[Rfam]
Shown here is a 74-nucleotide RNA from Drosophila pseudoobscura, a member of the family "mir-310 microRNA precursor family".
RNA sequence: AAAUUUGUGGGCAUGAAUUUGUGCCAAUAUUUUAUUUUUUAAUUAAUGUUGUACAUUUUCGUGCCUAUAAAUUU
Numbered sequence: 001a002a003a004u005u006u007g008u009g010g011g012c013a014u015g016a017a018u019u020u021g022u023g024c025c026a027a028u029a030u031u032u033u034a035u036u037u038u039u040u041a042a043u044u045a046a047u048g049u050u051g052u053a054c055a056u057u058u059u060c061g062u063g064c065c066u067a068u069a070a071a072u073u074u
Stems, first nucleotide, its partner, number of pairs: 001074007010065002013062002016059002020055002023052001025051007
The base pairs follow the family's consensus structure, which was predicted with RNAalifold. The family has 23 seed sequences and 60 matches in Rfam 15.1. Taxonomically the source falls in Sophophora (Eukaryota, Allotriocarida, Hexapoda, Schizophora). Rfam links the family to the GO terms cellular response to nitric oxide, head involution and segmentation.